[Rfam]
RNA sequence: GUAUCUCCCGGCUAAAAAGCCGGGAGCGGAUUGAAAC
Numbered sequence: 001g002u003a004u005c006u007c008c009c010g011g012c013u014a015a016a017a018a019g020c021c022g023g024g025a026g027c028g029g030a031u032u033g034a035a036a037c
Base pairs, nucleotide, nucleotide: 005026006025007024008023009022010021011020012019013018
Shown here is a 37-nucleotide sequence from Candidatus Macondimonas diazotrophica, a member of the family "CRISPR RNA direct repeat element". Rfam links the family to the GO term defense response. The family's consensus secondary structure was predicted with WAR.